[Rfam]
RNA sequence: GGCCUUCAUGUUGCCCAUUCAUUCCUGUCGAGAAUGGAUGUGGUGUCAAAAAAGGCAAACAGUAAUUCUUGCUCAAACUGGUUUAGGGAGCUGGUUGUGUGCCUUCUUCCUCUCUGUUUUUGCAAGGACAAAA
Numbered sequence: 001g002g003c004c005u006u007c008a009u010g011u012u013g014c015c016c017a018u019u020c021a022u023u024c025c026u027g028u029c030g031a032g033a034a035u036g037g038a039u040g041u042g043g044u045g046u047c048a049a050a051a052a053a054g055g056c057a058a059a060c061a062g063u064a065a066u067u068c069u070u071g072c073u074c075a076a077a078c079u080g081g082u083u084u085a086g087g088g089a090g091c092u093g094g095u096u097g098u099g100u101g102c103c104u105u106c107u108u109c110c111u112c113u114c115u116g117u118u119u120u121u122g123c124a125a126g127g128a129c130a131a132a133a
Stems, first nucleotide, its partner, number of pairs: 002056005009048002012045004016040008068126004075118002086111002088108002093103002